Overview:
Shown here is a 77-nucleotide sequence from Amphiplicatus metriothermophilus, a member of the family "Makes More Granules Regulator RNA (mmgR)".
RNA sequence: CGUUACGGCCCUUCUUGGGCGUUUCCUCCCUAGAACUUCCAGCCGCGGGUUCGCCCGCGGCUUUUUUUUGCGGCGAA
Numbered sequence: 001c002g003u004u005a006c007g008g009c010c011c012u013u014c015u016u017g018g019g020c021g022u023u024u025c026c027u028c029c030c031u032a033g034a035a036c037u038u039c040c041a042g043c044c045g046c047g048g049g050u051u052c053g054c055c056c057g058c059g060g061c062u063u064u065u066u067u068u069u070g071c072g073g074c075g076a077a
Base pairs, nucleotide, nucleotide: 008020009019010018011017041062042061043060044059045058046057047056048055049054